RNA sequence: CACACACGGAAUUCGGGACUGACAGCGGAGAAAUCCGUUCGCUCUGUCCCACCGGUGGCGGCCAUCCGGCUGCUUCUUUUCCGUGGAGGCUCAACCGGUAAAAGGAAAAUA
Numbered sequence: 001c002a003c004a005c006a007c008g009g010a011a012u013u014c015g016g017g018a019c020u021g022a023c024a025g026c027g028g029a030g031a032a033a034u035c036c037g038u039u040c041g042c043u044c045u046g047u048c049c050c051a052c053c054g055g056u057g058g059c060g061g062c063c064a065u066c067c068g069g070c071u072g073c074u075u076c077u078u079u080u081c082c083g084u085g086g087a088g089g090c091u092c093a094a095c096c097g098g099u100a101a102a103a104g105g106a107a108a109a110u111a
Base pairs, nucleotide, nucleotide: 001088003086005085006084007083008082009081010080011079015050016049026037027036028035058073059072060071061070062069063068
rpsB sRNA: a 111-nucleotide RNA sequence from Aureimonas glaciei. The organism belongs to Aureimonas, within Bacteria.